[Rfam]
RNA sequence: UGAGAGAACUGUGCUGAAGGAACUCGGCAAAUUGCUCCCGUAAGUUCGCGAGAAGGGAGACCUCAUAGUGGGCAACCAUUGUGGGGUGGCACAGACCAGGGGGUGGCGACUGUUUAUCAAAAACACAGGGCUCUGCGAAGUCGCAAGACGACGUAUAGGGUCUGACGCCUGCCCGGUGCCGGAAGGUUAAGAGGAGGUGUGCAAGCUCCGAAUUGAAGCCCCGGUAAACGGCGGCCGUAACUAUAACGGUCCUAAGGUAGCGAAAUUCCUUGUCGGGUAAGUUCCGACCUGCACGAAUGGCGUAACGACUUCCCCGCUGUCUCCAGCACAGACUCA
Dot-bracket structure: ((((....((((((((.(((..............(((((....(....).....)))))((((((((((((....))))))))))))(...).......((((.((((..(((.........)))..(((((((((...(((....)))...)..))))))))..((((.(((..(((((((..(((...((...((.((....)).))...))...))))))))..)))))((((((.......))))))(...).....(.........((((((.....))))))).........))))...)).)).))))....))).)))))))).))))
Numbered sequence: 001u002g003a004g005a006g007a008a009c010u011g012u013g014c015u016g017a018a019g020g021a022a023c024u025c026g027g028c029a030a031a032u033u034g035c036u037c038c039c040g041u042a043a044g045u046u047c048g049c050g051a052g053a054a055g056g057g058a059g060a061c062c063u064c065a066u067a068g069u070g071g072g073c074a075a076c077c078a079u080u081g082u083g084g085g086g087u088g089g090c091a092c093a094g095a096c097c098a099g100g101g102g103g104u105g106g107c108g109a110c111u112g113u114u115u116a117u118c119a120a121a122a123a124c125a126c127a128g129g130g131c132u133c134u135g136c137g138a139a140g141u142c143g144c145a146a147g148a149c150g151a152c153g154u155a156u157a158g159g160g161u162c163u164g165a166c167g168c169c170u171g172c173c174c175g176g177u178g179c180c181g182g183a184a185g186g187u188u189a190a191g192a193g194g195a196g197g198u199g200u201g202c203a204a205g206c207u208c209c210g211a212a213u214u215g216a217a218g219c220c221c222c223g224g225u226a227a228a229c230g231g232c233g234g235c236c237g238u239a240a241c242u243a244u245a246a247c248g249g250u251c252c253u254a255a256g257g258u259a260g261c262g263a264a265a266u267u268c269c270u271u272g273u274c275g276g277g278u279a280a281g282u283u284c285c286g287a288c289c290u291g292c293a294c295g296a297a298u299g300g301c302g303u304a305a306c307g308a309c310u311u312c313c314c315c316g317c318u319g320u321c322u323c324c325a326g327c328a329c330a331g332a333c334u335c336a
Stems, first nucleotide, its partner, number of pairs: 001336004009331008018322003035059005044049001060087012088092001100315004105310002107307002111125003128163008136153001140149003166302004171232003176229002178225005185220003191214002196209002199206002233251006252256001262289001272288006

Rfam assigns this 336-nucleotide part of an RNA from Roseibium suaedae to the family "Bacterial large subunit ribosomal RNA". It scores 2717 bits against the family's covariance model.